This 70-nucleotide RNA sequence from Drosophila willistoni belongs to the Rfam family "mir-287 microRNA precursor family". For this family Rfam cites "Computational identification of Drosophila microRNA genes" (Lai et al., Genome Biol, 2003). Taxonomically the source falls in Sophophora (Eukaryota, Ecdysozoa, Insecta, Eumetabola). Rfam links the family to the GO terms miRNA-mediated post-transcriptional gene silencing and RISC complex.
RNA sequence: UGCUGUAAAGUCUGAAAUUUUGCACACAUUUACAAUUAUUGUAAAUGUGUUGAAAAUCGUUUGCACAAAC
Numbered sequence: 001u002g003c004u005g006u007a008a009a010g011u012c013u014g015a016a017a018u019u020u021u022g023c024a025c026a027c028a029u030u031u032a033c034a035a036u037u038a039u040u041g042u043a044a045a046u047g048u049g050u051u052g053a054a055a056a057u058c059g060u061u062u063g064c065a066c067a068a069a070c
Stems, first nucleotide, its partner, number of pairs: 010064002015062002017057005024050012
Dot-bracket structure: .........((...(((((((..((((((((((((...))))))))))))..)))))...))))......